[Rfam]
RNA sequence: CCAAGAUCUAAGCCGAAUUCCGGCACCGGGAAGCGGGGGAACCAGUUAUGGGUGAAUUGACUUCGCAACGAAGGAGUCAUAGGGGGACCUUCUCAACCGAAUCCUUAAGCUAACCUCGCAGGCAAAACGGAAGGGGUAC
Numbered sequence: 001c002c003a004a005g006a007u008c009u010a011a012g013c014c015g016a017a018u019u020c021c022g023g024c025a026c027c028g029g030g031a032a033g034c035g036g037g038g039g040a041a042c043c044a045g046u047u048a049u050g051g052g053u054g055a056a057u058u059g060a061c062u063u064c065g066c067a068a069c070g071a072a073g074g075a076g077u078c079a080u081a082g083g084g085g086g087a088c089c090u091u092c093u094c095a096a097c098c099g100a101a102u103c104c105u106u107a108a109g110c111u112a113a114c115c116u117c118g119c120a121g122g123c124a125a126a127a128c129g130g131a132a133g134g135g136g137u138a139c
Stems, first nucleotide, its partner, number of pairs: 012123003018032003033119006050104003058079007082098002